This 114-nucleotide sequence from Bacillus sp. DNRA2 belongs to the Rfam family "SAM riboswitch aptamer (S box leader)". Taxonomically the source falls in Bacillus (Bacteria, Bacillota, Caryophanales, Bacillaceae).
RNA sequence: UUCUUAUCAAGAGAGGUUGAGGGUAUGGCCCGAUGACACCUCAGCAACCAUCAAUGUCUUUUUCAUUGAUAAGGUGCUAAGUCCUGCAAGUUUGUUAAACUUGAAAGAUAAGAA
Numbered sequence: 001u002u003c004u005u006a007u008c009a010a011g012a013g014a015g016g017u018u019g020a021g022g023g024u025a026u027g028g029c030c031c032g033a034u035g036a037c038a039c040c041u042c043a044g045c046a047a048c049c050a051u052c053a054a055u056g057u058c059u060u061u062u063u064c065a066u067u068g069a070u071a072a073g074g075u076g077c078u079a080a081g082u083c084c085u086g087c088a089a090g091u092u093u094g095u096u097a098a099a100c101u102u103g104a105a106a107g108a109u110a111a112g113a114a
Base pairs, nucleotide, nucleotide: 001114002113003112004111005110006109007108008107013042014041015040016039017038021031022030023029027084028083043078044077045076046075048074049073050070051069052068053067054066055065056064082106087103088102089101090100091099092098